[Rfam]
RNA: Listeria sRNA rliD
Organism: Enterococcus cecorum
RNA sequence: UGGUUAAUGGGAAGAAGUCAGCAUCUUUGGCUUCUUUUGAGGCAACUGCUGCACUUAGUACUACAGUAUCUCCAUAACGAACUAAAACAGCACCAUUGGCUUGUUUUGCUAAUUGACCGAUUUCAACUGAUAGUGGGUGGCCUCCCCAAGUGGUUGAAAAUACUUGUUUUGUCAUAAUGUUUCCUUUCUUACCGGGGGACUUGCUACUAAACAAAGGGAAACGCACAAAAAUUUGUUCCCUUUCCUUUGGUUAGUAGUAAGACAAAGAAACCCCAGUGAUAAAAAUUUCAAUCAAUUUUAUUCGUGGGCAAAGUUUCCCACUGGAUAGCUUUGUUUACGGA
Numbered sequence: 001u002g003g004u005u006a007a008u009g010g011g012a013a014g015a016a017g018u019c020a021g022c023a024u025c026u027u028u029g030g031c032u033u034c035u036u037u038u039g040a041g042g043c044a045a046c047u048g049c050u051g052c053a054c055u056u057a058g059u060a061c062u063a064c065a066g067u068a069u070c071u072c073c074a075u076a077a078c079g080a081a082c083u084a085a086a087a088c089a090g091c092a093c094c095a096u097u098g099g100c101u102u103g104u105u106u107u108g109c110u111a112a113u114u115g116a117c118c119g120a121u122u123u124c125a126a127c128u129g130a131u132a133g134u135g136g137g138u139g140g141c142c143u144c145c146c147c148a149a150g151u152g153g154u155u156g157a158a159a160a161u162a163c164u165u166g167u168u169u170u171g172u173c174a175u176a177a178u179g180u181u182u183c184c185u186u187u188c189u190u191a192c193c194g195g196g197g198g199a200c201u202u203g204c205u206a207c208u209a210a211a212c213a214a215a216g217g218g219a220a221a222c223g224c225a226c227a228a229a230a231a232u233u234u235g236u237u238c239c240c241u242u243u244c245c246u247u248u249g250g251u252u253a254g255u256a257g258u259a260a261g262a263c264a265a266a267g268a269a270a271c272c273c274c275a276g277u278g279a280u281a282a283a284a285a286u287u288u289c290a291a292u293c294a295a296u297u298u299u300a301u302u303c304g305u306g307g308g309c310a311a312a313g314u315u316u317c318c319c320a321c322u323g324g325a326u327a328g329c330u331u332u333g334u335u336u337a338c339g340g341a
Stems, first nucleotide, its partner, number of pairs: 003297001005295001008291001010289004014274001017271002022267001027079001030043005047068005053062001055060001102262001104260002107257001109254005116247001122158008135145002165231001167229001169228004301341015318324002